[Rfam]
RNA sequence: GUUGGCUACGGUGAUAUCUAUCCCAAAACCUUAUUGGGCAAGAUAGUUGGUGGACUAUGUUGUAUUGCAGGUGUGUUAGUGAUUGCUCUCCCCAUCCCAAUUAUUGUGAAUAAU
Numbered sequence: 001g002u003u004g005g006c007u008a009c010g011g012u013g014a015u016a017u018c019u020a021u022c023c024c025a026a027a028a029c030c031u032u033a034u035u036g037g038g039c040a041a042g043a044u045a046g047u048u049g050g051u052g053g054a055c056u057a058u059g060u061u062g063u064a065u066u067g068c069a070g071g072u073g074u075g076u077u078a079g080u081g082a083u084u085g086c087u088c089u090c091c092c093c094a095u096c097c098c099a100a101u102u103a104u105u106g107u108g109a110a111u112a113a114u
Base pairs, nucleotide, nucleotide: 001114002113004111007108008107009106010105011104013102014101015100020095021094037077038076039075040074049063

The record is a 114-nucleotide sequence from Chiloscyllium punctatum, which matches "Potassium channel RNA editing signal" in Rfam.
Lineage of the source: Eukaryota > Opisthokonta > Chordata > Orectolobiformes > Chiloscyllium.
A search with the family's covariance model found it, with a score of 81 bits.